[Rfam]
Overview:
The record is a 134-nucleotide RNA sequence from Bos taurus, which matches "Small nucleolar RNA SNORA1" in Rfam. The source organism's lineage runs through Eukaryota, Vertebrata, Dipnotetrapodomorpha, Artiodactyla and Bos. The family's consensus secondary structure was predicted with PFOLD. From the family's description: ACA1 is a member of the H/ACA class of snoRNA that guide the sites of modification of uridines to pseudouridines.

RNA sequence: AGCCUCAUUCUACUGAAAAUGGGCACUUGUUCAUGGUGUCCAUAAAACUGUUAAUGUGGCUACAUUGAGAACACAGGUUUUGCUUCCAUCACUGUAAUUUUAUUGCAGUGGUGACAAUGAGACCUGUAACAUUU
Numbered sequence: 001a002g003c004c005u006c007a008u009u010c011u012a013c014u015g016a017a018a019a020u021g022g023g024c025a026c027u028u029g030u031u032c033a034u035g036g037u038g039u040c041c042a043u044a045a046a047a048c049u050g051u052u053a054a055u056g057u058g059g060c061u062a063c064a065u066u067g068a069g070a071a072c073a074c075a076g077g078u079u080u081u082g083c084u085u086c087c088a089u090c091a092c093u094g095u096a097a098u099u100u101u102a103u104u105g106c107a108g109u110g111g112u113g114a115c116a117a118u119g120a121g122a123c124c125u126g127u128a129a130c131a132u133u134u
Base pairs, nucleotide, nucleotide: 002060003059004058006056007055008054020042021041022040023039024038025037026036073127074126075125076124077123087113088112089111090110091109092108
Dot-bracket structure: .(((.(((...........(((((((.........)))))))...........))).)))............(((((.........((((((...............)))))).........))))).......